[Rfam]
RNA: SAM riboswitch aptamer (S box leader)
Organism: Clostridium cavendishii
RNA sequence: UUCUUAUCAAGAGUGGUGGAGGGACUGGCCCUAUGAAACCCGGCAACCGGUAUGUGUUCCAUUUAACAUAUACAAUGGUGCCAAAUCCUGCAGCUAUAUUAGCUGACAGAUAAGAG
Numbered sequence: 001u002u003c004u005u006a007u008c009a010a011g012a013g014u015g016g017u018g019g020a021g022g023g024a025c026u027g028g029c030c031c032u033a034u035g036a037a038a039c040c041c042g043g044c045a046a047c048c049g050g051u052a053u054g055u056g057u058u059c060c061a062u063u064u065a066a067c068a069u070a071u072a073c074a075a076u077g078g079u080g081c082c083a084a085a086u087c088c089u090g091c092a093g094c095u096a097u098a099u100u101a102g103c104u105g106a107c108a109g110a111u112a113a114g115a116g
Base pairs, nucleotide, nucleotide: 001116002115003114004113005112006111007110008109013041015040016039017038021031022030023029025090027088028087042082043081044080045079047078048077050073051072052071053070054069055068056067057066086108091105092104093103094102095101096100